[Rfam]
RNA: Bacterial small signal recognition particle RNA
Organism: Rhizorhabdus wittichii
RNA sequence: GUCGGGCGGACGGUGCCGUCGCCAACCCGGUCAGGUCCGGAAGGAAGCAGCCGCAACGAUUUCGUAUCGGGUCGUUCCGGC
Numbered sequence: 001g002u003c004g005g006g007c008g009g010a011c012g013g014u015g016c017c018g019u020c021g022c023c024a025a026c027c028c029g030g031u032c033a034g035g036u037c038c039g040g041a042a043g044g045a046a047g048c049a050g051c052c053g054c055a056a057c058g059a060u061u062u063c064g065u066a067u068c069g070g071g072u073c074g075u076u077c078c079g080g081c
Stems, first nucleotide, its partner, number of pairs: 001081005006075003011069006018060004028053004036045003